[Rfam]
Nucleotides: 071
Base pairs, nucleotide, nucleotide: 001071002070003069004068
Number, partner (000 for none) and nucleotide at each position: 001071a002070a003069c004068c005000c006000g007000u008000g009000a010000u011000u012000a013000a014000c015000g016000a017000u018000u019000c020000u021000g022000c023000c024000a025000u026000a027000u028000g029000a030000a031000a032000c033000c034000u035000g036000a037000u038000u039000u040000u041000c042000a043000c044000c045000a046000u047000u048000a049000c050000c051000a052000u053000u054000c055000c056000a057000c058000u059000u060000u061000u062000u063000u064000c065000u066000g067000a068004g069003g070002u071001u
Shown here is a 71-nucleotide RNA from Aquarana catesbeiana, a member of the family "Small nucleolar RNA SNORD47". The match comes from Rfam's covariance-model search (55 bits). The family has 20 seed sequences and 755 matches in Rfam 15.1. For this family Rfam cites "RNomics: an experimental approach that identifies 201 candidates for novel, small, non-messenger RNAs in mouse" (Huttenhofer et al., EMBO J, 2001). Rfam classes the family as a C/D-box small nucleolar RNA.